Source information:
Shown here is a 75-nucleotide sequence from Olea europaea, a member of the family "Plastid-ycf2 5UTR RNA". Rfam classes the family as a cis-regulatory element. NCBI's taxonomy places the organism under Eukaryota, Tracheophyta, asterids, Oleaceae, Olea europaea. A reference for the family is Richter et al. (2023), "Retrograde signaling in plants: A critical review focusing on the GUN pathway and beyond", Plant Commun. Rfam describes the family as follows. Plastid ycf2 is a non-coding RNA (ncRNA) recognised in plastids. It scores 73 bits against the family's covariance model. Rfam 15.1 lists 3,521 matches to the family in 417 species. Pairs were carried over by alignment from the consensus structure, which was predicted with LocARNA.

[Rfam]
RNA sequence: UUGUAUUUAGUAGGAAUUGAACCUAUGAAUUCGUCAAUUAUAAGUUGGGCGGUUUAACCAUUCAGUCAUGAAUGC
Numbered sequence: 001u002u003g004u005a006u007u008u009a010g011u012a013g014g015a016a017u018u019g020a021a022c023c024u025a026u027g028a029a030u031u032c033g034u035c036a037a038u039u040a041u042a043a044g045u046u047g048g049g050c051g052g053u054u055u056a057a058c059c060a061u062u063c064a065g066u067c068a069u070g071a072a073u074g075c
Base pairs, nucleotide, nucleotide: 003075004074005073006072007071008070010026011025012024013023014022040069041068044066045065046064047063048062049061051059